This 544-nucleotide part of an RNA from Cadophora sp. M221 belongs to the Rfam family "Ascomycota telomerase RNA".
It is annotated as a non-coding RNA gene.
Clan: Telomerase clan.
Taxonomically the source falls in Cadophora (Eukaryota, Ascomycota, Leotiomycetes, Ploettnerulaceae).
Its family is annotated with telomerase catalytic core complex, telomere maintenance via telomerase and telomerase activity in the Gene Ontology.

RNA sequence: AUUCAAACAGAGAGAAGCUUCGUCGGUUACGUUGGGGUUAUCUGAGCGUCCUGGGCUUGGUCUCUUGGACGUCAGGUCCACUGCGGGUUUCGAAUCAAGCUGGAGUUGGGAAGACAGAUCACUCAUUUUGGGUGGGAUACAAUAGCGGGAUCAGUUUAUGCGGGUUUUGGGGUGCGAAAGACUAGAUGUUGUGGUAAGACCGUCCUAUCUAUCUAACUCAUACCGCAUCCACAGACUUAGCUACACUUCAUACGAGUAGAGAGGAUAUCACCCAACGUCCAGGACGGGACCCAUCUCGCGUUGGAGUCAAAGCUUAGUGCUUGUCUGUCCUGGGGAGCGCGGGGUUCGAUUGCCGACUUCUUUGUUUUGGGGCGUGGGCUUCUUCGGUGGUGCUGUGGUGGGUUUUGGACGGGUUUGCGUUGUGGAUGUUCUGCUGUGCUUUUGUAUGCUUGGCCUAUCGAGGGACAGACCCUGUUGGUGGGGUAGUCCUGGGCUGUUCUCUUGUCUAGUAAAAAGGACUUGAGGCAGCCCCUCCUUUUUGAGG
Numbered sequence: 001a002u003u004c005a006a007a008c009a010g011a012g013a014g015a016a017g018c019u020u021c022g023u024c025g026g027u028u029a030c031g032u033u034g035g036g037g038u039u040a041u042c043u044g045a046g047c048g049u050c051c052u053g054g055g056c057u058u059g060g061u062c063u064c065u066u067g068g069a070c071g072u073c074a075g076g077u078c079c080a081c082u083g084c085g086g087g088u089u090u091c092g093a094a095u096c097a098a099g100c101u102g103g104a105g106u107u108g109g110g111a112a113g114a115c116a117g118a119u120c121a122c123u124c125a126u127u128u129u130g131g132g133u134g135g136g137a138u139a140c141a142a143u144a145g146c147g148g149g150a151u152c153a154g155u156u157u158a159u160g161c162g163g164g165u166u167u168u169g170g171g172g173u174g175c176g177a178a179a180g181a182c183u184a185g186a187u188g189u190u191g192u193g194g195u196a197a198g199a200c201c202g203u204c205c206u207a208u209c210u211a212u213c214u215a216a217c218u219c220a221u222a223c224c225g226c227a228u229c230c231a232c233a234g235a236c237u238u239a240g241c242u243a244c245a246c247u248u249c250a251u252a253c254g255a256g257u258a259g260a261g262a263g264g265a266u267a268u269c270a271c272c273c274a275a276c277g278u279c280c281a282g283g284a285c286g287g288g289a290c291c292c293a294u295c296u297c298g299c300g301u302u303g304g305a306g307u308c309a310a311a312g313c314u315u316a317g318u319g320c321u322u323g324u325c326u327g328u329c330c331u332g333g334g335g336a337g338c339g340c341g342g343g344g345u346u347c348g349a350u351u352g353c354c355g356a357c358u359u360c361u362u363u364g365u366u367u368u369g370g371g372g373c374g375u376g377g378g379c380u381u382c383u384u385c386g387g388u389g390g391u392g393c394u395g396u397g398g399u400g401g402g403u404u405u406u407g408g409a410c411g412g413g414u415u416u417g418c419g420u421u422g423u424g425g426a427u428g429u430u431c432u433g434c435u436g437u438g439c440u441u442u443u444g445u446a447u448g449c450u451u452g453g454c455c456u457a458u459c460g461a462g463g464g465a466c467a468g469a470c471c472c473u474g475u476u477g478g479u480g481g482g483g484u485a486g487u488c489c490u491g492g493g494c495u496g497u498u499c500u501c502u503u504g505u506c507u508a509g510u511a512a513a514a515a516g517g518a519c520u521u522g523a524g525g526c527a528g529c530c531c532c533u534c535c536u537u538u539u540u541g542a543g544g
Base pairs, nucleotide, nucleotide: 288308289307290306291304292303293302310322311321312320313319